[Rfam]
RNA sequence: GGAAGCGGAAGUCUUGUGAUGGUUACAACUGGGCAUUGAUCGCGGUUCAUUUUAGCAGAUCUGCUCAGGCCUUGUGUCCGUUGCGCAUGUCGCUUCUAUGUAUCUGGAGCUCCCGAUGCCUCUGUCGCACGGUCGAGAUCCCCAUCCUUUGCAUUCUCUCGUGAAUGCACGGGUAUAUAUCUGACGCGAUUUCCAAAUUGGGUUCGAGUAGGUCAGUAACGUAAAUCGCGCUUCCAAUGAGCCUUGGCACUGUUGAGCAGUUCGCCAUCUUUUUCG
Numbered sequence: 001g002g003a004a005g006c007g008g009a010a011g012u013c014u015u016g017u018g019a020u021g022g023u024u025a026c027a028a029c030u031g032g033g034c035a036u037u038g039a040u041c042g043c044g045g046u047u048c049a050u051u052u053u054a055g056c057a058g059a060u061c062u063g064c065u066c067a068g069g070c071c072u073u074g075u076g077u078c079c080g081u082u083g084c085g086c087a088u089g090u091c092g093c094u095u096c097u098a099u100g101u102a103u104c105u106g107g108a109g110c111u112c113c114c115g116a117u118g119c120c121u122c123u124g125u126c127g128c129a130c131g132g133u134c135g136a137g138a139u140c141c142c143c144a145u146c147c148u149u150u151g152c153a154u155u156c157u158c159u160c161g162u163g164a165a166u167g168c169a170c171g172g173g174u175a176u177a178u179a180u181c182u183g184a185c186g187c188g189a190u191u192u193c194c195a196a197a198u199u200g201g202g203u204u205c206g207a208g209u210a211g212g213u214c215a216g217u218a219a220c221g222u223a224a225a226u227c228g229c230g231c232u233u234c235c236a237a238u239g240a241g242c243c244u245u246g247g248c249a250c251u252g253u254u255g256a257g258c259a260g261u262u263c264g265c266c267a268u269c270u271u272u273u274u275c276g
Base pairs, nucleotide, nucleotide: 001235002234003233004232005231006230007229016084017083018082019081020080029068030067031066033064034063035062038061039060040059041058042056043055045053246266247265248264249261250260251259252258253257
Shown here is a 276-nucleotide RNA from Ladona fulva, a member of the family "Arthropod 7SK RNA". It scores 74 bits against the family's covariance model. The organism belongs to Ladona, within Eukaryota. Clan: 7SK clan. Rfam 15.1 lists 229 matches to the family in 137 species.